[Rfam]
RNA sequence: GUUCCCAUUGAUUUGCUGCUCUCGCCUCCCCAGUGGCACGAGCAGUUAUACGCGUGGGAUAGAGCAACGCCGGGCCGCUGUGGACGGGGGUGGGUGGCCGUGCCACCCUUCUUCCACGUGUGUGUGGCCCGGACACGG
Numbered sequence: 001g002u003u004c005c006c007a008u009u010g011a012u013u014u015g016c017u018g019c020u021c022u023c024g025c026c027u028c029c030c031c032a033g034u035g036g037c038a039c040g041a042g043c044a045g046u047u048a049u050a051c052g053c054g055u056g057g058g059a060u061a062g063a064g065c066a067a068c069g070c071c072g073g074g075c076c077g078c079u080g081u082g083g084a085c086g087g088g089g090g091u092g093g094g095u096g097g098c099c100g101u102g103c104c105a106c107c108c109u110u111c112u113u114c115c116a117c118g119u120g121u122g123u124g125u126g127g128c129c130c131g132g133a134c135a136c137g138g
Stems, first nucleotide, its partner, number of pairs: 003059006015046007022038001025036002070132008079118004089111002092108007
RNA: Small nucleolar RNA SNORA20